[Rfam]
RNA sequence: AUGUUCCUUCGGGGUUAGGUGAAAUUCCUUACCGACGGUGAUGAACAAUUGUUCUAAGCCCGUGACCCAUUUUAUUAUCAGCAUUCUAUUGUUGAUAGGCUAUAUGCCAUGAGAUUUCAUUUAAAAUGGUGGACUUUGGUGAGAAUCCAAGGCCGACAGUUAAAGUCUGGAUGGGAGAAGGAUGUU
Numbered sequence: 001a002u003g004u005u006c007c008u009u010c011g012g013g014g015u016u017a018g019g020u021g022a023a024a025u026u027c028c029u030u031a032c033c034g035a036c037g038g039u040g041a042u043g044a045a046c047a048a049u050u051g052u053u054c055u056a057a058g059c060c061c062g063u064g065a066c067c068c069a070u071u072u073u074a075u076u077a078u079c080a081g082c083a084u085u086c087u088a089u090u091g092u093u094g095a096u097a098g099g100c101u102a103u104a105u106g107c108c109a110u111g112a113g114a115u116u117u118c119a120u121u122u123a124a125a126a127u128g129g130u131g132g133a134c135u136u137u138g139g140u141g142a143g144a145a146u147c148c149a150a151g152g153c154c155g156a157c158a159g160u161u162a163a164a165g166u167c168u169g170g171a172u173g174g175g176a177g178a179a180g181g182a183u184g185u186u
Base pairs, nucleotide, nucleotide: 005182006181007180008179009178010177017029018028019027031166032165033155034154035063036062037061038060058153059152067129068128069127070126071125072124073123074122135151136150137149138148139147157169158168159167
Rfam assigns this 186-nucleotide RNA sequence from Bacillus sp. HNG to the family "FMN riboswitch aptamer (RFN element)".